[Rfam]
RNA sequence: CGCUGGUGUCUCCACAACGGAUCGUCCGGCACGUACCUGCCGGUGGAGAGGUAACUG
Numbered sequence: 001c002g003c004u005g006g007u008g009u010c011u012c013c014a015c016a017a018c019g020g021a022u023c024g025u026c027c028g029g030c031a032c033g034u035a036c037c038u039g040c041c042g043g044u045g046g047a048g049a050g051g052u053a054a055c056u057g
Stems, first nucleotide, its partner, number of pairs: 009049006026043006